RNA sequence: UAGUAUCGGUGAAGAUGCCGAUUACCCGCAGUGGGACGAAAAGACCCUGUGCACCUUUACUAUAUCUUCGUAUUGGUCUUGGAUAAGUGAUGCGUAGGAUAGGUGGGAGACUUAGAAUGGGUUAUUCCGGUAACUCAGGAGUCGUUGUUGAAAUACCACCCUUUGCUUAUCUGAGGUCUAACUCCGCUAUCGUGGAGGACAAUUCGUGGAGGGUAGUUUGACUGGGGUGGUCGCCUCCAAAAGAGUAACGGAGGCUUCUAAAGGUUCCCUCAGCACGCUUGGUAACCGUGCGUAGAGUGCAAUGGUAUAAGGGAGCUUGACUGAGAGACUAACAAGUCGAUCAGGUACGAAAGUAGAGCAUAGUGAUCCGGUGGUUCCGUAUGGAAGGGCCAUCGCUCAAAGGAUAAAAGGUACGCCGGGGAUAACAGGCUGAUCUCCCCCAAGAGCUCACAUCGACGGGGGGGUUUGGCACCUCGAUGUCGGCUCGUCACAUCCUGGGGCUGGAGAAGGUCCCAAGGGUUGGGCUGUUCGCCCAUUAAAGUGGCACGCGAGCUGGGUUCAGAACGUCGUGAGACAGUUCGGUCUCUAUCUACUGUGGGC
Dot-bracket structure: ....(((((........)))))..((((((((.(((.((......((((.(((((((.((((...((.((.(..((((((((((((((((.(.........(((((..(((......((((((((....))))))))...)))............)))))).))))))))))))))))...((((((....)))))).....).)).))....))))..((((.....))))((((((...........))))))(.((....((((((((.(((((.........)))))...))((......))....))))))....((((..(((......)))..)))).(((....))).))..........(((((((.((........))))))))).....)......)))))..))))))........(((.((((((((...((.......))...)))))))..))))..........(((((((((((..((.((((((......))))))...)).(((((.....))))).....)))))..)..)))).).....(((((((....))).))))....))..))))))))))).
RNA: Bacterial large subunit ribosomal RNA, nucleotides 1976 to 2575
Organism: Capnocytophaga canis